RNA sequence: AUUACCGUCGGCCACGAUCUAAGCCAGACGGCAUGCCACGGCCAGAUCCGAAAAUGCAACACGAGCACGCGGCCGGUAGAUGAACCCAUCCAGCCACAUCGACAGCCGCGCA
Numbered sequence: 001a002u003u004a005c006c007g008u009c010g011g012c013c014a015c016g017a018u019c020u021a022a023g024c025c026a027g028a029c030g031g032c033a034u035g036c037c038a039c040g041g042c043c044a045g046a047u048c049c050g051a052a053a054a055u056g057c058a059a060c061a062c063g064a065g066c067a068c069g070c071g072g073c074c075g076g077u078a079g080a081u082g083a084a085c086c087c088a089u090c091c092a093g094c095c096a097c098a099u100c101g102a103c104a105g106c107c108g109c110g111c112a
Base pairs, nucleotide, nucleotide: 005031006030007029008028009027010025011024012023069109070108071107072106073105079100080099081098
Background:
Shown here is a 112-nucleotide RNA, a member of the family "RT-19 RNA". The base pairs follow the family's consensus structure, which is taken from published work. Rfam's curators put it in the seed alignment.